[Rfam]
RNA sequence: UGGUAUCUGACGGGAACGUCCGUAUAGUACGAGAGGAACUACGGAUGGUGGCCACUGGUGUAUCGGUCGUCCGAGAGGGCGCUGCCGAGCAGCCACGCCACACGGGGUAACGGCUGAACGCAUCUAAGCCGGAAACCCACCUGGAAAAGAGAUACCGCAGAGGUCACUCGUAGAAGACGAGUUCGAUAGACUCGGGGUGUACGCACCGAGGCAACGAGGUGUUCAGCCCGCGAGUACUAAUCGACCGAAG
Numbered sequence: 001u002g003g004u005a006u007c008u009g010a011c012g013g014g015a016a017c018g019u020c021c022g023u024a025u026a027g028u029a030c031g032a033g034a035g036g037a038a039c040u041a042c043g044g045a046u047g048g049u050g051g052c053c054a055c056u057g058g059u060g061u062a063u064c065g066g067u068c069g070u071c072c073g074a075g076a077g078g079g080c081g082c083u084g085c086c087g088a089g090c091a092g093c094c095a096c097g098c099c100a101c102a103c104g105g106g107g108u109a110a111c112g113g114c115u116g117a118a119c120g121c122a123u124c125u126a127a128g129c130c131g132g133a134a135a136c137c138c139a140c141c142u143g144g145a146a147a148a149g150a151g152a153u154a155c156c157g158c159a160g161a162g163g164u165c166a167c168u169c170g171u172a173g174a175a176g177a178c179g180a181g182u183u184c185g186a187u188a189g190a191c192u193c194g195g196g197g198u199g200u201a202c203g204c205a206c207c208g209a210g211g212c213a214a215c216g217a218g219g220u221g222u223u224c225a226g227c228c229c230g231c232g233a234g235u236a237c238u239a240a241u242c243g244a245c246c247g248a249a250g
Base pairs, nucleotide, nucleotide: 001157002156003155004154005153006152007151008150011143012142013141014140017047018046019045020044021043022042023041024040048101049100050099051098052097056095057094058093063088064087065086066085067084068081069080070079071078072077104138105137106136111131112130113129114128115127162246163245164244165243166182167181168180169179170178187239188238189237190235191234192233193232194231195229196228197227203222204221205220206219207218210215
Shown here is a 250-nucleotide part of an RNA from Halosimplex carlsbadense, a member of the family "Archaeal large subunit ribosomal RNA". NCBI's taxonomy places the organism under Archaea, Methanobacteriota, Halobacteria, Haloarculaceae, Halosimplex. The family is grouped with related families in Rfam's "LSU clan". The family's consensus secondary structure is taken from published work.